[Rfam]
RNA sequence: GAAUUUGGGGGUCAACAUCCAUCAGCGCGUUGCGCCCGUGGAUGCUAUUUUU
Numbered sequence: 001g002a003a004u005u006u007g008g009g010g011g012u013c014a015a016c017a018u019c020c021a022u023c024a025g026c027g028c029g030u031u032g033c034g035c036c037c038g039u040g041g042a043u044g045c046u047a048u049u050u051u052u
Stems, first nucleotide, its partner, number of pairs: 016044007025035004